[Rfam]
RNA sequence: ACCCUGAUCCGGGCCCCUCUGACGUGAGCCGCCUGGCGCCUACGUGAUGUCGGAUCCUAAUC
Numbered sequence: 001a002c003c004c005u006g007a008u009c010c011g012g013g014c015c016c017c018u019c020u021g022a023c024g025u026g027a028g029c030c031g032c033c034u035g036g037c038g039c040c041u042a043c044g045u046g047a048u049g050u051c052g053g054a055u056c057c058u059a060a061u062c
Stems, first nucleotide, its partner, number of pairs: 006056007022045005028039002

A member of the RNA family "terC RNA" from Microvirga guangxiensis, 62 nucleotides long. Rfam 15.1 lists 1,112 matches to the family in 772 species.